This 61-nucleotide sequence from Tolypothrix tenuis belongs to the Rfam family "Nitrogen stress-induced RNA 1". A search with the family's covariance model found it, with a score of 66 bits. By type it is a small RNA. Taxonomically the source falls in Tolypothrix tenuis (Bacteria, Bacillati, Cyanobacteriota, Nostocales). For this family Rfam cites "Heterocyst-specific transcription of NsiR1, a non-coding RNA encoded in a tandem array of direct repeats in cyanobacteria" (Ionescu et al., J Mol Biol, 2010).
RNA sequence: UGGUAGAUGCACCCUGAUAAUCCACUCCCCUAGUUGGCUGCCACCACUGGGGGUUUUUUGU
Numbered sequence: 001u002g003g004u005a006g007a008u009g010c011a012c013c014c015u016g017a018u019a020a021u022c023c024a025c026u027c028c029c030c031u032a033g034u035u036g037g038c039u040g041c042c043a044c045c046a047c048u049g050g051g052g053g054u055u056u057u058u059u060g061u
Base pairs, nucleotide, nucleotide: 002013003012004011027053028052029051030050031049032048033047035046036045037044